[Rfam]
RNA sequence: AUUUACCCGCGUUAGGGAUUGAAACGGCAUCCUUUUUUAAGAGUUAUAUAGACUAAUUUUUACUUUAAACACGCAUUUAAUUGAUAGCCAUGUGUUUUGUUCUUGCUAUGCGACUUAAAAAAGAUAUAGUGGAAAGCCCGACCUUUA
Numbered sequence: 001a002u003u004u005a006c007c008c009g010c011g012u013u014a015g016g017g018a019u020u021g022a023a024a025c026g027g028c029a030u031c032c033u034u035u036u037u038u039a040a041g042a043g044u045u046a047u048a049u050a051g052a053c054u055a056a057u058u059u060u061u062a063c064u065u066u067a068a069a070c071a072c073g074c075a076u077u078u079a080a081u082u083g084a085u086a087g088c089c090a091u092g093u094g095u096u097u098u099g100u101u102c103u104u105g106c107u108a109u110g111c112g113a114c115u116u117a118a119a120a121a122a123g124a125u126a127u128a129g130u131g132g133a134a135a136g137c138c139c140g141a142c143c144u145u146u147a
Stems, first nucleotide, its partner, number of pairs: 015139003019135002024130002029125003035120007
A member of the RNA family "Flavo-1 RNA" from Algibacter pectinivorans, 147 nucleotides long. The match comes from Rfam's covariance-model search (53 bits). Pairs were carried over by alignment from the consensus structure, which is taken from published work. The family's RNA type in Rfam is small RNA.